[Rfam]
RNA sequence: CUCGCCGCCGAGCCGGACGCUCGGGACGAGACGACAUGUGGCCCUCGCGGCUGAAUCGCAAC
Numbered sequence: 001c002u003c004g005c006c007g008c009c010g011a012g013c014c015g016g017a018c019g020c021u022c023g024g025g026a027c028g029a030g031a032c033g034a035c036a037u038g039u040g041g042c043c044c045u046c047g048c049g050g051c052u053g054a055a056u057c058g059c060a061a062c
Base pairs, nucleotide, nucleotide: 001030002029003028004027032058033057034056040052041051042050043049
The family of this 62-nucleotide sequence is "eL15-Euryarchaeota ribosomal protein leader". The literature on the family includes a 2020 paper in BMC Microbiol by Eckert and Weinberg, "Discovery of 20 novel ribosomal leader candidates in bacteria and archaea". Rfam classes the family as a cis-regulatory leader. It is one of the family's seed sequences.